[Rfam]
RNA sequence: GCAACCUGCAGCUGGCGCGCCAGCAGCCCACGGUCUUUCGCACCCUGCUGGGCAUCUCCUGGCUGUGGUUCUUCGGCGCGGUCUUCCUGUCGCAGUUCCCGGCCUAUGCCAAGGAGGUGCUG
Numbered sequence: 001g002c003a004a005c006c007u008g009c010a011g012c013u014g015g016c017g018c019g020c021c022a023g024c025a026g027c028c029c030a031c032g033g034u035c036u037u038u039c040g041c042a043c044c045c046u047g048c049u050g051g052g053c054a055u056c057u058c059c060u061g062g063c064u065g066u067g068g069u070u071c072u073u074c075g076g077c078g079c080g081g082u083c084u085u086c087c088u089g090u091c092g093c094a095g096u097u098c099c100c101g102g103c104c105u106a107u108g109c110c111a112a113g114g115a116g117g118u119g120c121u122g
Stems, first nucleotide, its partner, number of pairs: 010049003014044002017041003022037002025034001051121005057115004062110001065103001067099002071095002074092005080087002
Shown here is a 122-nucleotide sequence from Ideonella dechloratans, a member of the family "Burkholderia RNA 11". The source organism's lineage runs through Bacteria, Pseudomonadati, Pseudomonadota, Betaproteobacteria and Ideonella. Pairs were carried over by alignment from the consensus structure, which was predicted with RNAfold. Rfam's curators write: Co-purified with Hfq, expression confirmed by Northern blot. Predicted target marZ. Overlaps coding sequence. By type it is a small RNA.